[Rfam]
RNA sequence: AUACUCCCUCCGUCUCAUAAUAUAAGACGUUUUUUCGCACUACGCUAGUGUCAAAAAAUGUCUUACAUUAUGGGACGGAGGGAGUAC
Numbered sequence: 001a002u003a004c005u006c007c008c009u010c011c012g013u014c015u016c017a018u019a020a021u022a023u024a025a026g027a028c029g030u031u032u033u034u035u036c037g038c039a040c041u042a043c044g045c046u047a048g049u050g051u052c053a054a055a056a057a058a059u060g061u062c063u064u065a066c067a068u069u070a071u072g073g074g075a076c077g078g079a080g081g082g083a084g085u086a087c
Stems, first nucleotide, its partner, number of pairs: 003085003007081005013075005019069003023065013037051005
The family of this 87-nucleotide RNA sequence from Triticum aestivum is "MIR1120/MIR1122 microRNA precursor family". Rfam 15.1 lists 44,765 matches to the family in 8 species.